The family of this 97-nucleotide RNA sequence from Caldicoprobacter faecalis is "THF (Tetrahydrofolate) riboswitch aptamer". Tetrahydrofolate (THF) riboswitch was first reported for Ames et al. as an RNA motif in 5' untranslated (5'-UTR)regions of folate transport and biosynthesis genes in Firmicutes genomes. A reference for the family is Ames et al. (2010), "A eubacterial riboswitch class that senses the coenzyme tetrahydrofolate", Chem Biol.

RNA sequence: GGCAGAGUAGGUGCUGCGCGUUAAGUGCCAGGGGAUGGGAUGUUGCCCCUGGACGAAAGGCUUAAAUGGCCUGCGAUGCAGUACCGCAUCCGCUGCC
Numbered sequence: 001g002g003c004a005g006a007g008u009a010g011g012u013g014c015u016g017c018g019c020g021u022u023a024a025g026u027g028c029c030a031g032g033g034g035a036u037g038g039g040a041u042g043u044u045g046c047c048c049c050u051g052g053a054c055g056a057a058a059g060g061c062u063u064a065a066a067u068g069g070c071c072u073g074c075g076a077u078g079c080a081g082u083a084c085c086g087c088a089u090c091c092g093c094u095g096c097c
Stems, first nucleotide, its partner, number of pairs: 001097005010085009019075003025054002028052007038091005058072004